[Rfam]
RNA sequence: GCCGACGUAGCUCAAAUGGUAGAGCAACCGCCUUGUAAGCGGUAGGUUGCAGGUUCAAGUCCUGCCGUCGGCA
Numbered sequence: 001g002c003c004g005a006c007g008u009a010g011c012u013c014a015a016a017u018g019g020u021a022g023a024g025c026a027a028c029c030g031c032c033u034u035g036u037a038a039g040c041g042g043u044a045g046g047u048u049g050c051a052g053g054u055u056c057a058a059g060u061c062c063u064g065c066c067g068u069c070g071g072c073a
Stems, first nucleotide, its partner, number of pairs: 001072007010025004027043005049065005
Rfam assigns this 73-nucleotide RNA sequence from Limibacillus halophilus to the family "tRNA".
Clan: tRNA clan.
The match comes from Rfam's covariance-model search (78 bits).